[Rfam]
RNA sequence: GCACUCUGGUUUCCCUUCAAAUCACGUAUAAAUCUUUCGCCUUUUACUAAAGAUUUCCGUGGAGGGGAACAAUUGAUGAGUCUGUAAGACAAUUUUUUGUAGUACCCAACGCAAGUUGGGU
Numbered sequence: 001g002c003a004c005u006c007u008g009g010u011u012u013c014c015c016u017u018c019a020a021a022u023c024a025c026g027u028a029u030a031a032a033u034c035u036u037u038c039g040c041c042u043u044u045u046a047c048u049a050a051a052g053a054u055u056u057c058c059g060u061g062g063a064g065g066g067g068a069a070c071a072a073u074u075g076a077u078g079a080g081u082c083u084g085u086a087a088g089a090c091a092a093u094u095u096u097u098u099g100u101a102g103u104a105c106c107c108a109a110c111g112c113a114a115g116u117u118g119g120g121u
Stems, first nucleotide, its partner, number of pairs: 003081004009070011030056008104121005
RNA: U5 spliceosomal RNA